[Rfam]
RNA: mir-9229 microRNA precursor family
Organism: Myotis myotis
RNA sequence: GAGACACCCCUGCGGGGCAAGACUUGCUUCAGUGGGGCAUUGGUGCUCACUGAGUCUGCCCCGAGUGUAUCCUU
Numbered sequence: 001g002a003g004a005c006a007c008c009c010c011u012g013c014g015g016g017g018c019a020a021g022a023c024u025u026g027c028u029u030c031a032g033u034g035g036g037g038c039a040u041u042g043g044u045g046c047u048c049a050c051u052g053a054g055u056c057u058g059c060c061c062c063g064a065g066u067g068u069a070u071c072c073u074u
Stems, first nucleotide, its partner, number of pairs: 001073001003071002006068002009065001011063002015061005021056003029053008037044002